[Rfam]
RNA: mir-769 microRNA precursor family
Organism: Pteropus alecto
Nucleotides: 081
Base pairs, nucleotide, nucleotide: 003079004078005077007075008074011071012070013069014068016066018064019063020062022060023059026056027055028054030052031051033049
Number, partner (000 for none) and nucleotide at each position: 001000g002000c003079a004078u005077u006000c007075u008074g009000a010000c011071c012070u013069g014068a015000a016066a017000a018064c019063u020062c021000u022060g023059g024000g025000u026056u027055c028054u029000g030052a031051g032000a033049u034000g035000g036000g037000a038000c039000g040000u041000g042000g043000c044000u045000u046000c047000u048000g049033a050000g051031c052030u053000g054028g055027g056026g057000u058000g059023u060022c061000u062020g063019g064018g065000g066016u067000c068014u069013u070012g071011g072000u073000u074008c075007a076000c077005g078004g079003u080000u081000g